The record is an 80-nucleotide sequence from Aegilops tauschii, which matches "small nucleolar RNA snoR117" in Rfam.
Pairs were carried over by alignment from the consensus structure, which was predicted with RNAalifold.
Gene Ontology terms of the family: nucleolus and RNA processing.
It is annotated as a C/D-box small nucleolar RNA.
RNA sequence: GGCCUGUGAUGUGAACAAUUUGUCCGUACCAUCUGACAUCUCUGAUGAGAUCCACAUUUGCUAAUGUAUCUCUGAGGUCC
Dot-bracket structure: ((((.......................................................................)))).
Numbered sequence: 001g002g003c004c005u006g007u008g009a010u011g012u013g014a015a016c017a018a019u020u021u022g023u024c025c026g027u028a029c030c031a032u033c034u035g036a037c038a039u040c041u042c043u044g045a046u047g048a049g050a051u052c053c054a055c056a057u058u059u060g061c062u063a064a065u066g067u068a069u070c071u072c073u074g075a076g077g078u079c080c
Stems, first nucleotide, its partner, number of pairs: 001079004